MIR6217 microRNA precursor family: a 220-nucleotide sequence from Miscanthus lutarioriparius. Gene Ontology terms of the family: RISC complex and miRNA-mediated post-transcriptional gene silencing. The source organism's lineage runs through Eukaryota, Euphyllophyta, Poales, Andropogonodae and Miscanthus. The base pairs follow the family's consensus structure, which was predicted with RNAalifold.
RNA sequence: UGGCUAUAAAAUAACUUAUUUUGUAGCCACUUUGAGUUACGAUAAUUAUUAUGCUAAUUUACAUGAUUAUAGUAACUUCUUACUAGGUAGUUUACUAUAACGUUAUGAUAAAUAUCCCCAUGUGACCCAACUAUUAUAAAUAUGUAUUGACAUUAUCAUAAAUUAGUAUUUAAAAUUAUCGUAAAUAGAGGUGGCUACAGAAUAACUUAUUUUGUAGUUG
Numbered sequence: 001u002g003g004c005u006a007u008a009a010a011a012u013a014a015c016u017u018a019u020u021u022u023g024u025a026g027c028c029a030c031u032u033u034g035a036g037u038u039a040c041g042a043u044a045a046u047u048a049u050u051a052u053g054c055u056a057a058u059u060u061a062c063a064u065g066a067u068u069a070u071a072g073u074a075a076c077u078u079c080u081u082a083c084u085a086g087g088u089a090g091u092u093u094a095c096u097a098u099a100a101c102g103u104u105a106u107g108a109u110a111a112a113u114a115u116c117c118c119c120a121u122g123u124g125a126c127c128c129a130a131c132u133a134u135u136a137u138a139a140a141u142a143u144g145u146a147u148u149g150a151c152a153u154u155a156u157c158a159u160a161a162a163u164u165a166g167u168a169u170u171u172a173a174a175a176u177u178a179u180c181g182u183a184a185a186u187a188g189a190g191g192u193g194g195c196u197a198c199a200g201a202a203u204a205a206c207u208u209a210u211u212u213u214g215u216a217g218u219u220g
Base pairs, nucleotide, nucleotide: 001220002219003218004217005216006215007214008213009212010211011210012209013208014207016205017204018203019202020201021200022199023198024197025196026195027194028193029192030191031190032189033188037184038183039182040181041180042179043178044177045176046175047174051169052168053167054166055165056164057163058162059161060160061159065157066156067155069153070152074147080139081138082137087134088133089132090131091130092129101124102123103122107117